[Rfam]
RNA sequence: UUCGCCUCGGAGUUCGUGCCAGGAGUGCGUUUGCAAAGCACGCUACAAGUUUGCGUUAUUGCAAAGUUGACACUGUAAAUGCACUAUCUGGUACGACACCCCGGGGCGA
Numbered sequence: 001u002u003c004g005c006c007u008c009g010g011a012g013u014u015c016g017u018g019c020c021a022g023g024a025g026u027g028c029g030u031u032u033g034c035a036a037a038g039c040a041c042g043c044u045a046c047a048a049g050u051u052u053g054c055g056u057u058a059u060u061g062c063a064a065a066g067u068u069g070a071c072a073c074u075g076u077a078a079a080u081g082c083a084c085u086a087u088c089u090g091g092u093a094c095g096a097c098a099c100c101c102c103g104g105g106g107c108g109a
Stems, first nucleotide, its partner, number of pairs: 008103003015095009025084001027082006040076003

Rfam assigns this 109-nucleotide RNA sequence from Plutella xylostella to the family "mir-277 microRNA precursor family". For this family Rfam cites "MicroRNAs of Bombyx mori identified by Solexa sequencing" (Liu et al., BMC Genomics, 2010). Pairs were carried over by alignment from the consensus structure, which was predicted with RNAalifold.